[Rfam]
Shown here is a 130-nucleotide RNA from Otolemur garnettii, a member of the family "Small nucleolar RNA SNORA44".
RNA sequence: CAGCAUUCUUCCACGAGCUGUGGCUGCCUGCAGCUACGGGAUCUCCAUCUGCAUGGAGAGCAAUCGGGGGACACUUCCACAGCUCAAGUCAGCACAAAGCCUGCAGCUGCCAUUCGCCUUUCCUAUAACG
Numbered sequence: 001c002a003g004c005a006u007u008c009u010u011c012c013a014c015g016a017g018c019u020g021u022g023g024c025u026g027c028c029u030g031c032a033g034c035u036a037c038g039g040g041a042u043c044u045c046c047a048u049c050u051g052c053a054u055g056g057a058g059a060g061c062a063a064u065c066g067g068g069g070g071a072c073a074c075u076u077c078c079a080c081a082g083c084u085c086a087a088g089u090c091a092g093c094a095c096a097a098a099g100c101c102u103g104c105a106g107c108u109g110c111c112a113u114u115c116g117c118c119u120u121u122c123c124u125a126u127a128a129c130g
Stems, first nucleotide, its partner, number of pairs: 011039002016035007067123005082110002085103002088100001

Record summary
It is annotated as an H/ACA-box small nucleolar RNA. NCBI's taxonomy places the organism under Eukaryota, Tetrapoda, Amniota, Eutheria, Otolemur.